RNA sequence: UAUUAGGUUGGUGCAAAAGCAAUUGCAGUUUUGGCUAUUAUUUUCAAUGGCCAAAACUGCAAUUACUUUUGCACCAACCUAAUA
Numbered sequence: 001u002a003u004u005a006g007g008u009u010g011g012u013g014c015a016a017a018a019g020c021a022a023u024u025g026c027a028g029u030u031u032u033g034g035c036u037a038u039u040a041u042u043u044u045c046a047a048u049g050g051c052c053a054a055a056a057c058u059g060c061a062a063u064u065a066c067u068u069u070u071g072c073a074c075c076a077a078c079c080u081a082a083u084a
Base pairs, nucleotide, nucleotide: 001084002083003082004081005080006079007078008077009076010075011074012073013072014071015070016069017068018067019066021064022063023062024061025060026059027058028057029056030055031054032053033052034051035050036049037048038047039046
RNA: mir-548 microRNA precursor family